The family of this 111-nucleotide sequence from Croceibacter atlanticus is "6S-Flavo RNA". Lineage of the source: Bacteria > Bacteroidota > Flavobacteriales > Croceibacter > Croceibacter atlanticus.
RNA sequence: ACUUAACAAUCAAUUAUUUGAAAAGGGUAAGUUUUAAUUGUAAAAACAAGCCGUCUUAGAACGGAAGUUUGAUCAGUUAUGUAGCCCUAAACUUUAUUAUUUAUGAAGUUU
Numbered sequence: 001a002c003u004u005a006a007c008a009a010u011c012a013a014u015u016a017u018u019u020g021a022a023a024a025g026g027g028u029a030a031g032u033u034u035u036a037a038u039u040g041u042a043a044a045a046a047c048a049a050g051c052c053g054u055c056u057u058a059g060a061a062c063g064g065a066a067g068u069u070u071g072a073u074c075a076g077u078u079a080u081g082u083a084g085c086c087c088u089a090a091a092c093u094u095u096a097u098u099a100u101u102u103a104u105g106a107a108g109u110u111u
Base pairs, nucleotide, nucleotide: 024088025087026086027085028084035079036078037077038076039075044070045069046068051064052063053062054061
Dot-bracket structure: .......................(((((......(((((....(((....((((......))))...)))....)))))....))))).......................

The sequence is in the family's curated seed alignment.